Singlet oxygen resistance RNA X: a 75-nucleotide sequence from Aliigemmobacter aestuarii. Rfam describes the family as follows. SorX (RSs2461)like SorY is a singlet oxygen induced sRNA that counteracts oxidative stress by targeting mRNA for a transporter in Rhodobacter. It also has an impact on resistance against organic hydroperoxides. It targets SD sequence of potA mRNA via an aSD sequence. Lineage of the source: Bacteria > Pseudomonadota > Alphaproteobacteria > Paracoccaceae > Aliigemmobacter.
RNA sequence: ACCCCUCGCCGUGUCGGGGUCAUGACACGGCAUCCUCCCUGUUGGACUGGCCGGGCCUUGUGCCCGGCCUUUUUU
Numbered sequence: 001a002c003c004c005c006u007c008g009c010c011g012u013g014u015c016g017g018g019g020u021c022a023u024g025a026c027a028c029g030g031c032a033u034c035c036u037c038c039c040u041g042u043u044g045g046a047c048u049g050g051c052c053g054g055g056c057c058u059u060g061u062g063c064c065c066g067g068c069c070u071u072u073u074u075u
Stems, first nucleotide, its partner, number of pairs: 010029006049069008
Overview
It scores 82 bits against the family's covariance model.